Small Cajal body specific RNA 3: a 137-nucleotide RNA from Sphenodon punctatus. The family is grouped with related families in Rfam's "SCARNA3 clan". A search with the family's covariance model found it, with a score of 129 bits. By type it is a small Cajal body RNA. scaRNAs are a specific class of small nuclear RNAs which localise to the Cajal bodies and guide the modification of RNA polymerase II transcribed spliceosomal RNAs U1, U2, U4, U5 and U12.
RNA sequence: GGUGGAAGCUGCUGGGACUCGCCAUGUGGGCAAAUGAAACUCCUUUUGUCUGCACUUGCAGCCUUCCUAGAGUAAAGUGGAGGUCUCUGUCUGGUUUAGGACAGCUAGCUAAACCUGAUCGUUCCCCUCCGUACACU
Numbered sequence: 001g002g003u004g005g006a007a008g009c010u011g012c013u014g015g016g017a018c019u020c021g022c023c024a025u026g027u028g029g030g031c032a033a034a035u036g037a038a039a040c041u042c043c044u045u046u047u048g049u050c051u052g053c054a055c056u057u058g059c060a061g062c063c064u065u066c067c068u069a070g071a072g073u074a075a076a077g078u079g080g081a082g083g084u085c086u087c088u089g090u091c092u093g094g095u096u097u098a099g100g101a102c103a104g105c106u107a108g109c110u111a112a113a114c115c116u117g118a119u120c121g122u123u124c125c126c127c128u129c130c131g132u133a134c135a136c137u
Stems, first nucleotide, its partner, number of pairs: 004067003008062005025054007036045002079130005087121001089119003093115007